[Rfam]
RNA sequence: AAGAGAGACUAUGGAAUGGAGAGUCAAUUAUAACAAAUAGUGGAUAUCGACACUGUCUGACACAAUUUGAGCUUGCUACAGCAACAAAGUCUAACCUAUUCCGGUGCUCUCUUCUAUGAGACAAGCCAUUAUAUAGACUUAGACAGU
Numbered sequence: 001a002a003g004a005g006a007g008a009c010u011a012u013g014g015a016a017u018g019g020a021g022a023g024u025c026a027a028u029u030a031u032a033a034c035a036a037a038u039a040g041u042g043g044a045u046a047u048c049g050a051c052a053c054u055g056u057c058u059g060a061c062a063c064a065a066u067u068u069g070a071g072c073u074u075g076c077u078a079c080a081g082c083a084a085c086a087a088a089g090u091c092u093a094a095c096c097u098a099u100u101c102c103g104g105u106g107c108u109c110u111c112u113u114c115u116a117u118g119a120g121a122c123a124a125g126c127c128a129u130u131a132u133a134u135a136g137a138c139u140u141a142g143a144c145a146g147u
Stems, first nucleotide, its partner, number of pairs: 003061001006058004087140007097133003103127003108121004
The record is a 147-nucleotide sequence from Myotis lucifugus, which matches "Small nucleolar RNA SNORA28" in Rfam.
Rfam links the family to the GO terms RNA processing and nucleolus.
NCBI's taxonomy places the organism under Eukaryota, Deuterostomia, Gnathostomata, Chiroptera, Myotis.
ACA28 is a member of the H/ACA class of snoRNA that guide the sites of modification of uridines to pseudouridines.
For this family Rfam cites "RNomics: an experimental approach that identifies 201 candidates for novel, small, non-messenger RNAs in mouse" (Huttenhofer et al., EMBO J, 2001).
Rfam classes the family as an H/ACA-box small nucleolar RNA.